This 46-nucleotide RNA from Lentisphaera araneosa belongs to the Rfam family "Acido-Lenti-1 RNA".
The family's consensus secondary structure is taken from published work.
Taxonomically the source falls in Lentisphaera araneosa (Bacteria, Lentisphaeria, Lentisphaerales, Lentisphaeraceae).
[Rfam]
Nucleotides: 046
Stems, first nucleotide, its partner, number of pairs: 001020008033045004
Number, partner (000 for none) and nucleotide at each position: 001020c002019c003018c004017a005016a006015g007014g008013c009000u010000c011000a012000c013008g014007c015006c016005u017004u018003g019002g020001g021000c022000u023000u024000u025000a026000u027000u028000u029000u030000g031000u032000c033045a034044u035043g036042c037000c038000u039000u040000c041000a042036g043035c044034a045033u046000u